This 107-nucleotide RNA sequence from Aliirhizobium cellulosilyticum belongs to the Rfam family "Alphaproteobacterial ar15". Pairs were carried over by alignment from the consensus structure. Clan: suhB sRNA clan. Gene Ontology term of the family: protein binding. For this family Rfam cites "A survey of sRNA families in alpha-proteobacteria" (del Val et al., RNA Biol, 2012). By type it is a small RNA.
RNA sequence: AGUCGAUGGCACGAUGGUUUCCCGCCAUCCGCGUCGACUGUUCCCCUCUGGAGGUUUUUUGACCUUCACACUUGACGGGCCGCGGAGAAAUCCGUUGGCCCGAUUUU
Numbered sequence: 001a002g003u004c005g006a007u008g009g010c011a012c013g014a015u016g017g018u019u020u021c022c023c024g025c026c027a028u029c030c031g032c033g034u035c036g037a038c039u040g041u042u043c044c045c046c047u048c049u050g051g052a053g054g055u056u057u058u059u060u061g062a063c064c065u066u067c068a069c070a071c072u073u074g075a076c077g078g079g080c081c082g083c084g085g086a087g088a089a090a091u092c093c094g095u096u097g098g099c100c101c102g103a104u105u106u107u
Stems, first nucleotide, its partner, number of pairs: 001039005007033002014028004049068007076102006082095004